[Rfam]
Shown here is a 168-nucleotide sequence from Desulforudis audaxviator, a member of the family "Group II catalytic intron D1-D4-3".
The match comes from Rfam's covariance-model search (69 bits).
Pairs were carried over by alignment from the consensus structure.

RNA sequence: UCACCGGCAACGGUGGGGUCUGAAGGAAGCUGAAGGGGGAACUUGGAACAUAGCGCAAGCGAACCGGGGUUGGCUCUUCAGGUGGGUAACCUUGCAAGAUAUGGGAAAGCCCGAAAGCUGGAUAACCUGAGGAGUUAAGACGGAUGCGUUCAAGUUCGGGCAGACAGA
Dot-bracket structure: ((((((....)))))).............(((...(....((((((..(((............(((......(((.(((((((((((..(((..........)))...))))............))))))).))).....))))))...)))))).....)...))).
NCBI's taxonomy places the organism under Bacteria, Bacillota, Clostridia, Desulforudis, Desulforudis audaxviator.